[Rfam]
RNA: Purine riboswitch aptamer
Organism: Pelagirhabdus alkalitolerans
RNA sequence: AAAACUAAACUAAAUAUUCGUCGUAUAAUCUUGAGAAUAUGGCUCUAGAGUUUCUACCGACCACCGUAAAUGGUCUGUCUACGCAGAAGAUAAAGUAAGGG
Numbered sequence: 001a002a003a004a005c006u007a008a009a010c011u012a013a014a015u016a017u018u019c020g021u022c023g024u025a026u027a028a029u030c031u032u033g034a035g036a037a038u039a040u041g042g043c044u045c046u047a048g049a050g051u052u053u054c055u056a057c058c059g060a061c062c063a064c065c066g067u068a069a070a071u072g073g074u075c076u077g078u079c080u081a082c083g084c085a086g087a088a089g090a091u092a093a094a095g096u097a098a099g100g101g
Base pairs, nucleotide, nucleotide: 018087019086022083023082024081025080029049030048031047033045034044035043058077059075060074061073062072063071